Shown here is a 92-nucleotide RNA sequence from Paraburkholderia acidisoli, a member of the family "Selenocysteine transfer RNA".
RNA sequence: GGAGGGCAUUCGUAUCCGGUGGUACGGCUGGACUUCAAAUCCAGUUGGGGACGUUAGCCGUUCCCGGGUCAGUUCGACUCUGGCUGCCCUCC
Dot-bracket structure: ((((((((..((((((....))))))((((((.......)))))).(((((.........)))))...((((.......)))).))))))))